[Rfam]
RNA sequence: GGGUGCUUAAGACUUUCUGUCUUGAGCAUUGUUGAGGGACAGAAAGUGGAAAGCCCCGGGAAAUUUGCAUUUACCCGAGGCUACCCCCUCAACUACCCACAAGUUGAGGGUAGCCUCUUAUUCUUUUUUUGACAAGGAGUAAAAGGCAUG
Numbered sequence: 001g002g003g004u005g006c007u008u009a010a011g012a013c014u015u016u017c018u019g020u021c022u023u024g025a026g027c028a029u030u031g032u033u034g035a036g037g038g039a040c041a042g043a044a045a046g047u048g049g050a051a052a053g054c055c056c057c058g059g060g061a062a063a064u065u066u067g068c069a070u071u072u073a074c075c076c077g078a079g080g081c082u083a084c085c086c087c088c089u090c091a092a093c094u095a096c097c098c099a100c101a102a103g104u105u106g107a108g109g110g111u112a113g114c115c116u117c118u119u120a121u122u123c124u125u126u127u128u129u130u131g132a133c134a135a136g137g138a139g140u141a142a143a144a145g146g147c148a149u150g
Base pairs, nucleotide, nucleotide: 001057002056003055005054006053007052008051012047013046014045015044016043017042018041019040020039021038022037023036026033058076060071061070077117078116079115080114081113086110087109088108089107090106091105092104093103121146122145125142126141
Notes:
This 150-nucleotide sequence from Enterobacter cancerogenus belongs to the Rfam family "sok antitoxin (CssrC)". On this family, see Peng et al., PLoS One 2011: "An integrated approach for finding overlooked genes in Shigella". Its family is annotated with mRNA binding in the Gene Ontology. Lineage of the source: Bacteria > Enterobacteriaceae > Enterobacter > Enterobacter cloacae complex > Enterobacter cancerogenus. Also identified in Shigella as CssrC. Pairs were carried over by alignment from the consensus structure, which is taken from published work. It is one of the family's seed sequences.